[Rfam]
RNA sequence: CGCACAUCACAUCCGAACCCUGGGCGCCGGGGGCGGGGGACUUUUUUUCUUUGGGGCGAAUCCGCGUUGUAUCCAGUUUCGACGACGUAUUCCCCGGAACACGUGGUAGGGAGCGGCAAGCCACUGCCCGAGCCCGUCAACUAACCUCGCAGGAUGCAAAGGGGCUUGCA
Numbered sequence: 001c002g003c004a005c006a007u008c009a010c011a012u013c014c015g016a017a018c019c020c021u022g023g024g025c026g027c028c029g030g031g032g033g034c035g036g037g038g039g040a041c042u043u044u045u046u047u048u049c050u051u052u053g054g055g056g057c058g059a060a061u062c063c064g065c066g067u068u069g070u071a072u073c074c075a076g077u078u079u080c081g082a083c084g085a086c087g088u089a090u091u092c093c094c095c096g097g098a099a100c101a102c103g104u105g106g107u108a109g110g111g112a113g114c115g116g117c118a119a120g121c122c123a124c125u126g127c128c129c130g131a132g133c134c135c136g137u138c139a140a141c142u143a144a145c146c147u148c149g150c151a152g153g154a155u156g157c158a159a160a161g162g163g164g165c166u167u168g169c170a
Stems, first nucleotide, its partner, number of pairs: 011155004018032003033150006043053001054135003062106006109129003
RNA: c-di-AMP riboswitch aptamer (ydaO/yuaA leader)
Organism: Paenalicyclobacillus cellulosilyticus